[Rfam]
RNA sequence: GUACGUCUUCAGGGCGGGGCGAAACUCCCCACCGGCGGUAAGCCACACUUGGCAAGCCCGCGAGCGCCCGGUCUGUCUCAUGACAGCCGGGGUCAGCAGAUCUGGUGCGAUUCCAGGGCCGACGGUCACAGUCCGGAUGAGAGAAGAUGUGC
Numbered sequence: 001g002u003a004c005g006u007c008u009u010c011a012g013g014g015c016g017g018g019g020c021g022a023a024a025c026u027c028c029c030c031a032c033c034g035g036c037g038g039u040a041a042g043c044c045a046c047a048c049u050u051g052g053c054a055a056g057c058c059c060g061c062g063a064g065c066g067c068c069c070g071g072u073c074u075g076u077c078u079c080a081u082g083a084c085a086g087c088c089g090g091g092g093u094c095a096g097c098a099g100a101u102c103u104g105g106u107g108c109g110a111u112u113c114c115a116g117g118g119c120c121g122a123c124g125g126u127c128a129c130a131g132u133c134c135g136g137a138u139g140a141g142a143g144a145a146g147a148u149g150u151g152c
Base pairs, nucleotide, nucleotide: 003150004149005148006147007146008145009144010143017029018028019027031132032131033121034120035061036060037059038058056119057118064097065096101117102116103115104114105113123135124134125133